[Rfam]
Nucleotides: 137
Base pairs, nucleotide, nucleotide: 013122014121017118018117019116020115023112024111025110026109027108028107029106030105031104032103034101035100036099037098038097040095041094042093043092044091
Number, partner (000 for none) and nucleotide at each position: 001000u002000c003000a004000c005000c006000g007000u008000c009000u010000u011000g012000c013122u014121c015000g016000g017118a018117u019116u020115c021000g022000c023112u024111u025110g026109g027108u028107g029106c030105a031104g032103g033000u034101c035100g036099g037098g038097a039000a040095c041094c042093a043092a044091u045000u046000g047000u048000c049000u050000a051000a052000c053000a054000c055000a056000u057000c058000c059000a060000c061000g062000a063000a064000g065000u066000u067000u068000u069000a070000c071000u072000u073000g074000c075000u076000g077000g078000u079000u080000u081000g082000u083000g084000a085000g086000c087000a088000g089000g090000g091044a092043u093042u094041g095040g096000a097038u098037c099036c100035c101034g102000c103032c104031u105030u106029g107028c108027a109026u110025c111024a112023a113000u114000u115020g116019a117018a118017u119000c120000g121014g122013a123000g124000c125000c126000c127000u128000g129000a130000u131000c132000g133000u134000g135000a136000a137000a